[Rfam]
RNA sequence: GUAUGUGAGGGCGAUCUGGCUGCGACAUCUGUCACCCCAUUGAUCGCCAGGGUUGAUUCGGCUGAUCUGGCUGGCUAGGCGGGUGUCCCCUUCCUCCCUCACCGCUCCAUGUGCGUCCCUCCCGAAGCUGCGCGCUCGGUGGAAGAGGACGACGUCCCAGGUAUAGAAGGAGUGUACCGAGGUCUCCAGUCUUCGGUCCCGGGUAUACGAUAGCUGCGCUCCCCUGCUAGAACCUCCAAACAAGCUCAAGGUCCAUUGAGCCAUAGUGUCAAAUUCUCCAGGAUAAAUACAUCCUUUGAAUUUACUGCUGGUUAUGUGGUCCUGGUAAUUUUA
Number, nucleotide and partner (000 for none) at each position: 001g108002u000003a106004u000005g102006u101007g100008a099009g098010g097011g096012c000013g093014a092015u000016c000017u000018g090019g089020c000021u000022g000023c000024g087025a086026c085027a084028u083029c082030u081031g080032u079033c078034a000035c074036c073037c070038c069039a068040u000041u000042g067043a066044u065045c064046g062047c061048c060049a000050g000051g000052g000053u000054u000055g000056a000057u000058u000059c000060g048061g047062c046063u000064g045065a044066u043067c042068u039069g038070g037071c000072u000073g036074g035075c000076u000077a000078g033079g032080c031081g030082g029083g028084u027085g026086u025087c024088c000089c019090c018091u000092u014093c013094c000095u000096c011097c010098c009099u008100c007101a006102c005103c000104g000105c000106u003107c000108c001109a000110u000111g000112u000113g000114c000115g000116u170117c169118c000119c166120u165121c000122c139123c138124g137125a136126a000127g135128c134129u000130g000131c000132g000133c000134g128135c127136u125137c124138g123139g122140u161141g000142g000143a000144a000145g000146a000147g157148g156149a155150c000151g000152a000153c000154g000155u149156c148157c147158c000159a000160g000161g140162u000163a000164u000165a120166g119167a000168a000169g117170g116171a000172g000173u000174g000175u000176a000177c000178c000179g000180a000181g000182g000183u000184c000185u000186c000187c000188a000189g000190u000191c000192u000193u000194c000195g000196g000197u000198c000199c000200c000201g000202g000203g000204u000205a000206u000207a000208c000209g000210a000211u000212a000213g275214c000215u273216g000217c000218g000219c000220u268221c000222c000223c000224c266225u265226g264227c000228u000229a000230g000231a000232a000233c000234c260235u259236c258237c000238a000239a000240a000241c000242a000243a000244g256245c000246u000247c000248a000249a000250g000251g000252u000253c000254c000255a000256u244257u000258g236259a235260g234261c000262c000263a000264u226265a225266g224267u000268g220269u000270c000271a000272a000273a215274u000275u213276c000277u000278c000279c000280a000281g000282g000283a000284u000285a000286a000287a000288u000289a000290c000291a000292u000293c000294c000295u000296u000297u000298g000299a332300a331301u000302u328303u327304a326305c325306u324307g321308c000309u319310g000311g317312u000313u000314a000315u000316g000317u311318g000319g309320u000321c307322c000323u000324g306325g305326u304327a303328a302329u000330u000331u300332u299333a000
A member of the RNA family "7SK RNA" from Anolis carolinensis, 333 nucleotides long. Rfam 15.1 lists 49,373 matches to the family in 668 species. On this family, see Blencowe, Curr Biol 2002: "Transcription: surprising role for an elusive small nuclear RNA". Clan: 7SK clan. 7SK was discovered as an abundant small nuclear RNA in the mid-70s but a possible function has only recently been suggested. Two independent studies have found that 7SK RNA binds the CDK9/cyclin T complex (known as elongation factor P-TEFb). P-TEFb activates transcription by phosphorylating the C-terminal domain of RNA polymerase II. This process is negatively regulated by the 7SK RNP. The secondary structure of 7SK RNA shown here was proposed by Wasserman and Steitz on the basis of chemical modification and enzymatic cleavage experiments. This family contains a number of annotated pseudogenes and 7SK derived repeats. The threshold is artificially high to minimise the pseudogene count. NCBI's taxonomy places the organism under Eukaryota, Sauria, Episquamata, Iguania, Anolis.